[Rfam]
RNA sequence: CUACCUCCAUAAUGGCCAUAGCAGAAGCAUUCACAUCGUGGUCCCUGUCAGAUUCCAAUGAAUUUGCUAAAUUCUGCU
Numbered sequence: 001c002u003a004c005c006u007c008c009a010u011a012a013u014g015g016c017c018a019u020a021g022c023a024g025a026a027g028c029a030u031u032c033a034c035a036u037c038g039u040g041g042u043c044c045c046u047g048u049c050a051g052a053u054u055c056c057a058a059u060g061a062a063u064u065u066g067c068u069a070a071a072u073u074c075u076g077c078u
Stems, first nucleotide, its partner, number of pairs: 014043004020078007027039002049066007